RNA: Small nucleolar RNA SNORD17
RNA sequence: GUGAGGUGAUGACAAAGGUUAUCCAUUCUCUGAGUGCAGUGGUUCGGUCCUCCUGCAGCACCCUGAUUCCUGUUCUAGGGUCUGAGUGUUGUGCAGCCUCCAGAGACCCUCCCAUCUCCCAGUGUUCUACUGAGAGGUUCUGUGAGGUGUGGCUGGCUGGCUGCCUGCAGGAGUGAAAUGGUACCGCAUGGUUGGAGCCUCUCUUUGUGGGGCUCCAUCCUUACCAAGAUGAUGGUUGAUGUCUGAUCAC
Numbered sequence: 001g002u003g004a005g006g007u008g009a010u011g012a013c014a015a016a017g018g019u020u021a022u023c024c025a026u027u028c029u030c031u032g033a034g035u036g037c038a039g040u041g042g043u044u045c046g047g048u049c050c051u052c053c054u055g056c057a058g059c060a061c062c063c064u065g066a067u068u069c070c071u072g073u074u075c076u077a078g079g080g081u082c083u084g085a086g087u088g089u090u091g092u093g094c095a096g097c098c099u100c101c102a103g104a105g106a107c108c109c110u111c112c113c114a115u116c117u118c119c120c121a122g123u124g125u126u127c128u129a130c131u132g133a134g135a136g137g138u139u140c141u142g143u144g145a146g147g148u149g150u151g152g153c154u155g156g157c158u159g160g161c162u163g164c165c166u167g168c169a170g171g172a173g174u175g176a177a178a179u180g181g182u183a184c185c186g187c188a189u190g191g192u193u194g195g196a197g198c199c200u201c202u203c204u205u206u207g208u209g210g211g212g213c214u215c216c217a218u219c220c221u222u223a224c225c226a227a228g229a230u231g232a233u234g235g236u237u238g239a240u241g242u243c244u245g246a247u248c249a250c
Stems, first nucleotide, its partner, number of pairs: 010249003017242001020239001023235003027232002030228002034224002039187004044181003048177001050175001051172007059088003063084001065082001068080004093164006106150002108147001111144001112142001114138005120132005190220002193217004198212004